This 101-nucleotide RNA from Triticum aestivum belongs to the Rfam family "Small nucleolar RNA Z157/R69/R10". Rfam links the family to the GO terms RNA processing and nucleolus. A reference for the family is Chen et al. (2003), "The high diversity of snoRNAs in plants: identification and comparative study of 120 snoRNA genes from Oryza sativa", Nucleic Acids Res.

[Rfam]
RNA sequence: GGGAGUUUUGAGCGAUGAUGACAUUAUGUGGACUAGAGUUUCUGAUACUGCCUCUUCAGCAGUACUUUUGAAGACAAACCCUUGGCUGUCUGAGCUCUCCC
Numbered sequence: 001g002g003g004a005g006u007u008u009u010g011a012g013c014g015a016u017g018a019u020g021a022c023a024u025u026a027u028g029u030g031g032a033c034u035a036g037a038g039u040u041u042c043u044g045a046u047a048c049u050g051c052c053u054c055u056u057c058a059g060c061a062g063u064a065c066u067u068u069u070g071a072a073g074a075c076a077a078a079c080c081c082u083u084g085g086c087u088g089u090c091u092g093a094g095c096u097c098u099c100c101c
Base pairs, nucleotide, nucleotide: 001099002098003097004096005095006094039073040072041071042070046064047063048062049061050060051059